[Rfam]
Overview:
The record is a 69-nucleotide sequence from Phytohabitans flavus, which matches "ASpks TB sRNA" in Rfam. Taxonomically the source falls in Phytohabitans (Bacteria, Bacillati, Actinomycetes, Micromonosporales).
Nucleotides: 069
Base pairs, nucleotide, nucleotide: 016024017023028065030063032059037054038053039052041050042049043048
Number, partner (000 for none) and nucleotide at each position: 001000c002000u003000u004000c005000a006000c007000c008000g009000a010000g011000c012000c013000g014000a015000g016024c017023c018000a019000c020000a021000a022000u023017g024016g025000a026000c027000g028065c029000u030063c031000a032059c033000g034000g035000c036000c037054c038053u039052g040000c041050c042049c043048g044000u045000a046000g047000g048043u049042g050041g051000c052039c053038a054037g055000g056000a057000u058000g059032g060000c061000c062000u063030g064000c065028g066000c067000c068000u069000c